The family of this 141-nucleotide RNA from Setaria viridis is "MIR2118 microRNA precursor family". It scores 110 bits against the family's covariance model. Rfam links the family to the GO terms RISC complex and miRNA-mediated post-transcriptional gene silencing.
RNA sequence: GUGUGGAAGAGGAAGAAAAGAGAGUCAAAAAGUAGUGGGCAUGGGAACAUGGAGGAAGGCCUUUGGCAAUCUCAUUUUGGGUCUUCCCGAUGCCUCCCAUGCCUAUUGGUCUUUGGUUCUCCUUCCUUUUUCCUUUCAGCU
Numbered sequence: 001g002u003g004u005g006g007a008a009g010a011g012g013a014a015g016a017a018a019a020g021a022g023a024g025u026c027a028a029a030a031a032g033u034a035g036u037g038g039g040c041a042u043g044g045g046a047a048c049a050u051g052g053a054g055g056a057a058g059g060c061c062u063u064u065g066g067c068a069a070u071c072u073c074a075u076u077u078u079g080g081g082u083c084u085u086c087c088c089g090a091u092g093c094c095u096c097c098c099a100u101g102c103c104u105a106u107u108g109g110u111c112u113u114u115g116g117u118u119c120u121c122c123u124u125c126c127u128u129u130u131u132c133c134u135u136u137c138a139g140c141u
Stems, first nucleotide, its partner, number of pairs: 009132005015125003020121003025116005031110001033108002036105011048092003052088001054087009